[Rfam]
RNA sequence: UUAAGUCUUCAGGGCAGGGUGAAAUUCCCGAUCGGCGGUAAAGUCCGCUAGCGAUAAUAUCGAUCGCAUGACUCCGGUGUGAUUCCGGGACCGACAGUAAAGUCUGGAUGGAAGAAGUGCUUUA
Numbered sequence: 001u002u003a004a005g006u007c008u009u010c011a012g013g014g015c016a017g018g019g020u021g022a023a024a025u026u027c028c029c030g031a032u033c034g035g036c037g038g039u040a041a042a043g044u045c046c047g048c049u050a051g052c053g054a055u056a057a058u059a060u061c062g063a064u065c066g067c068a069u070g071a072c073u074c075c076g077g078u079g080u081g082a083u084u085c086c087g088g089g090a091c092c093g094a095c096a097g098u099a100a101a102g103u104c105u106g107g108a109u110g111g112a113a114g115a116a117g118u119g120c121u122u123u124a
Stems, first nucleotide, its partner, number of pairs: 003122004007117004017029003031103002033093002035048004043091002051067003073089005095106003
RNA: FMN riboswitch aptamer (RFN element)